[Rfam]
RNA sequence: CGAGUCAGCCAGGCGGCCGCGUCACCGGUUCGUCCGGUGCCGAGGAACGUCCGGGCUCCGCAGGGCAGGGUGGUGGGUAACGCCCACCCGGGGUGACCCGCGGGACAGUGCCACAGAAAGUAGACCGCCGGGCCGGUUCGCCGGCCCGGUAAGGGUGAAACGGUGGUGUAAGAGACCACCAGCACCCCCGGUGACGGGGGUGGCUCGGUAAACCCCACCCGGAGCAAGGUCAGACAGGGAGCGUUCGAGGGCGGCCCGCCCGAGCUCCCGGGUAGACCGCUGGAGCGGGCCGGCAACGGUCCGCCGAGAUGGAUGGUCGCCACCCGCGCGCGGGUGACCGCGCGCGGGGACAGAACCCGGCGUACCGGCUGGCUCGUCCG
Numbered sequence: 001c002g003a004g005u006c007a008g009c010c011a012g013g014c015g016g017c018c019g020c021g022u023c024a025c026c027g028g029u030u031c032g033u034c035c036g037g038u039g040c041c042g043a044g045g046a047a048c049g050u051c052c053g054g055g056c057u058c059c060g061c062a063g064g065g066c067a068g069g070g071u072g073g074u075g076g077g078u079a080a081c082g083c084c085c086a087c088c089c090g091g092g093g094u095g096a097c098c099c100g101c102g103g104g105a106c107a108g109u110g111c112c113a114c115a116g117a118a119a120g121u122a123g124a125c126c127g128c129c130g131g132g133c134c135g136g137u138u139c140g141c142c143g144g145c146c147c148g149g150u151a152a153g154g155g156u157g158a159a160a161c162g163g164u165g166g167u168g169u170a171a172g173a174g175a176c177c178a179c180c181a182g183c184a185c186c187c188c189c190g191g192u193g194a195c196g197g198g199g200g201u202g203g204c205u206c207g208g209u210a211a212a213c214c215c216c217a218c219c220c221g222g223a224g225c226a227a228g229g230u231c232a233g234a235c236a237g238g239g240a241g242c243g244u245u246c247g248a249g250g251g252c253g254g255c256c257c258g259c260c261c262g263a264g265c266u267c268c269c270g271g272g273u274a275g276a277c278c279g280c281u282g283g284a285g286c287g288g289g290c291c292g293g294c295a296a297c298g299g300u301c302c303g304c305c306g307a308g309a310u311g312g313a314u315g316g317u318c319g320c321c322a323c324c325c326g327c328g329c330g331c332g333g334g335u336g337a338c339c340g341c342g343c344g345c346g347g348g349g350a351c352a353g354a355a356c357c358c359g360g361c362g363u364a365c366c367g368g369c370u371g372g373c374u375c376g377u378c379c380g
Stems, first nucleotide, its partner, number of pairs: 001376010012321007020042002023039006047363003051360005056224004063257004068220005073087005088102001089100004103215002108213002110209003125154002127150009162180006182204001183202008228278004237269006249261004285304008
RNA: Bacterial RNase P class A